[Rfam]
RNA sequence: GUGCCUUAAACUAAUGAGUAAGGAAAAUAAAUGGUCUUGCUGACGCUUGACUGAUGUUCAGUCUUGAACAGUAAAUUUUUGGGGGGUACAGGUCGUCCUCAGAGAUGCCUUCAGUGUUUCUGGGUGAAGCGAUCUGCCCG
Numbered sequence: 001g002u003g004c005c006u007u008a009a010a011c012u013a014a015u016g017a018g019u020a021a022g023g024a025a026a027a028u029a030a031a032u033g034g035u036c037u038u039g040c041u042g043a044c045g046c047u048u049g050a051c052u053g054a055u056g057u058u059c060a061g062u063c064u065u066g067a068a069c070a071g072u073a074a075a076u077u078u079u080u081g082g083g084g085g086g087u088a089c090a091g092g093u094c095g096u097c098c099u100c101a102g103a104g105a106u107g108c109c110u111u112c113a114g115u116g117u118u119u120c121u122g123g124g125u126g127a128a129g130c131g132a133u134c135u136g137c138c139c140g
Stems, first nucleotide, its partner, number of pairs: 004023005032053005039046001055070005084139004090135007098124002101121005107115002
Shown here is a 140-nucleotide RNA sequence from Allacma fusca, a member of the family "U12 minor spliceosomal RNA". By type it is a spliceosomal small nuclear RNA. NCBI's taxonomy places the organism under Eukaryota, Metazoa, Mandibulata, Symphypleona, Allacma. The match comes from Rfam's covariance-model search (92 bits). Pairs were carried over by alignment from the consensus structure.